RNA sequence: AGAUGAGAGAAACACCCCGCUCACAGGAGACUGUGAGCGACACCGGGUCGGAGCCUCCCCAGCCCCGCCCUGGGCGUGCCUUCGCGCACACACCUGGAGCCCAUGGCUCCGGAACUCCUCACCGAUCGGA
Numbered sequence: 001a002g003a004u005g006a007g008a009g010a011a012a013c014a015c016c017c018c019g020c021u022c023a024c025a026g027g028a029g030a031c032u033g034u035g036a037g038c039g040a041c042a043c044c045g046g047g048u049c050g051g052a053g054c055c056u057c058c059c060c061a062g063c064c065c066c067g068c069c070c071u072g073g074g075c076g077u078g079c080c081u082u083c084g085c086g087c088a089c090a091c092a093c094c095u096g097g098a099g100c101c102c103a104u105g106g107c108u109c110c111g112g113a114a115c116u117c118c119u120c121a122c123c124g125a126u127c128g129g130a
Stems, first nucleotide, its partner, number of pairs: 004121004009117002018039009043073005049067003053063002076089004094112008122129002